[Rfam]
RNA sequence: AACUUUAGUGCCUCGAGGACAACAGAUAGAAUGGCCGCGGCGAUGGAGGAUUGCCCCCCCACCCCGAUGAGGCUGCCAUUCUAGCUGUUGUCGUCGAGGCACUAAAGU
Numbered sequence: 001a002a003c004u005u006u007a008g009u010g011c012c013u014c015g016a017g018g019a020c021a022a023c024a025g026a027u028a029g030a031a032u033g034g035c036c037g038c039g040g041c042g043a044u045g046g047a048g049g050a051u052u053g054c055c056c057c058c059c060c061a062c063c064c065c066g067a068u069g070a071g072g073c074u075g076c077c078a079u080u081c082u083a084g085c086u087g088u089u090g091u092c093g094u095c096g097a098g099g100c101a102c103u104a105a106a107g108u
Base pairs, nucleotide, nucleotide: 002108003107004106005105006104007103008102009101010100011099012098013097014096015095016094018092019091020090021089022088023087024086025085027083028082029081030080031079032078033077034076035075037073038072041069042068044066045065046064
This 108-nucleotide RNA sequence from Oryza glumipatula belongs to the Rfam family "MIR5534 microRNA precursor family". Pairs were carried over by alignment from the consensus structure, which was predicted with RNAalifold. The organism belongs to Oryza, within Eukaryota. The match comes from Rfam's covariance-model search (87 bits).